[Rfam]
The family of this 281-nucleotide sequence from Sciurus vulgaris is "Mason-Pfizer monkey virus packaging signal". A reference for the family is Mustafa et al. (2004), "Mutational analysis of the predicted secondary RNA structure of the Mason-Pfizer monkey virus packaging signal", Virus Res. From the family's description: This family represents a group of sequences that are related to the Mason-Pfizer monkey virus (MPMV) packaging signal. The packaging signal is located in the 5' UTR and is required for specific RNA encapsidation. Gene Ontology term of the family: viral genome packaging. The family's consensus secondary structure was predicted with PFOLD. It scores 162 bits against the family's covariance model.
RNA sequence: UGGCGCCCAACGGUGUGGCGUGGGAUACGGGGGAAUUCACGAGGGAAGAGGCAUCUAAUUGUUCGGCCGAAGGAAAAAAAAAGUGAAAGUCAGUUCGACAAAGAUCGCCGCGGGAGCCUGCAGCUCCAUUCUUAAAGGUACAGUAGCGCCUAAGUAUGGGACAAGAAUUAAGCAUAAAGUUUUUGUUAAGCAAUUAAAAGAAGCUUUAAAGACACGGGGAGUAAAGGUUAAGAGUAAUGAUCUUUUUAAGUUUUUUGACCUUAUUAAGGACACCUGUCCAU
Dot-bracket structure: .....(((......(((........)))..)))....(.(.......).).......................................((..((.......(((....((.(.......).))...)).)..)).)).....(.(..((((....)))).).)....(((((.............................)).)))......((((((((..((((((.......))))))......))))))))........(.((((....)))).)